[Rfam]
RNA sequence: UGCUCUGUCACCUUCGGGGGCUUGAAUGCUCGAGUGGGGAUUACCUGGAUUAGCGAGGGCGUUCGCUGCGUUGACAUGGUGCUCUGCUUGGCUGUGUGUCGGUGCUCUGUGCGCCACUGUAGAGAGGCAGUGCGGACACCGUUAAAGUUAAGGCAAUGGAUCAGGCCGGGAACGGAACAAUCCACCUUGCGCACGUCGGCCGUUGUAGAAACACACCGUGGAGCAGAUCGG
Numbered sequence: 001u002g003c004u005c006u007g008u009c010a011c012c013u014u015c016g017g018g019g020g021c022u023u024g025a026a027u028g029c030u031c032g033a034g035u036g037g038g039g040a041u042u043a044c045c046u047g048g049a050u051u052a053g054c055g056a057g058g059g060c061g062u063u064c065g066c067u068g069c070g071u072u073g074a075c076a077u078g079g080u081g082c083u084c085u086g087c088u089u090g091g092c093u094g095u096g097u098g099u100c101g102g103u104g105c106u107c108u109g110u111g112c113g114c115c116a117c118u119g120u121a122g123a124g125a126g127g128c129a130g131u132g133c134g135g136a137c138a139c140c141g142u143u144a145a146a147g148u149u150a151a152g153g154c155a156a157u158g159g160a161u162c163a164g165g166c167c168g169g170g171a172a173c174g175g176a177a178c179a180a181u182c183c184a185c186c187u188u189g190c191g192c193a194c195g196u197c198g199g200c201c202g203u204u205g206u207a208g209a210a211a212c213a214c215a216c217c218g219u220g221g222a223g224c225a226g227a228u229c230g231g
Stems, first nucleotide, its partner, number of pairs: 011018002063231003075220007083209005090201003094196006100141005107135006113128003117124002142146001147190002151187003157184005166175003
Dot-bracket structure: ..........((....))............................................(((.........(((((((.(((((..(((.(((((((((((..(((((((((.((....)).))).)))))).)))))(...)((..(((...(((((....(((....)))....)))))))).))))))))..)))...)))))....)))))))........)))
The record is a 231-nucleotide RNA from Strigomonas culicis, which matches "Protozoan signal recognition particle RNA" in Rfam.
A reference for the family is Rosenblad et al. (2003), "SRPDB: Signal Recognition Particle Database", Nucleic Acids Res.
Gene Ontology terms of the family: SRP-dependent cotranslational protein targeting to membrane, signal sequence recognition and signal recognition particle, endoplasmic reticulum targeting.
Lineage of the source: Eukaryota > Euglenozoa > Kinetoplastea > Trypanosomatidae > Strigomonas.
It is annotated as a non-coding RNA gene.
A search with the family's covariance model found it, with a score of 103 bits.